[Rfam]
RNA: S4-Fusobacteriales ribosomal protein leader
RNA sequence: CUGUAAAGAUAUGUUGACCUGUAGAGGCGGUACUUUUGGAUGAAAAAUUCGAAGUAAUCAAGAGGCAUGUCGAGGAA
Numbered sequence: 001c002u003g004u005a006a007a008g009a010u011a012u013g014u015u016g017a018c019c020u021g022u023a024g025a026g027g028c029g030g031u032a033c034u035u036u037u038g039g040a041u042g043a044a045a046a047a048u049u050c051g052a053a054g055u056a057a058u059c060a061a062g063a064g065g066c067a068u069g070u071c072g073a074g075g076a077a
Stems, first nucleotide, its partner, number of pairs: 008071006014030003018027003033064007